[Rfam]
Rfam assigns this 76-nucleotide sequence from Tardiphaga sp. to the family "chrB-a RNA". The family's RNA type in Rfam is cis-regulatory element.
RNA sequence: GGCAUGGGGGCCGCGAUCUCCCCACGAGGCGACAGCUGAAGUAUCGCGUCCCGUUCACAACGAGGGCGCAGUCAUG
Numbered sequence: 001g002g003c004a005u006g007g008g009g010g011c012c013g014c015g016a017u018c019u020c021c022c023c024a025c026g027a028g029g030c031g032a033c034a035g036c037u038g039a040a041g042u043a044u045c046g047c048g049u050c051c052c053g054u055u056c057a058c059a060a061c062g063a064g065g066g067c068g069c070a071g072u073c074a075u076g
Base pairs, nucleotide, nucleotide: 005024006023007022008021009020010019046069047068048067049066050065051064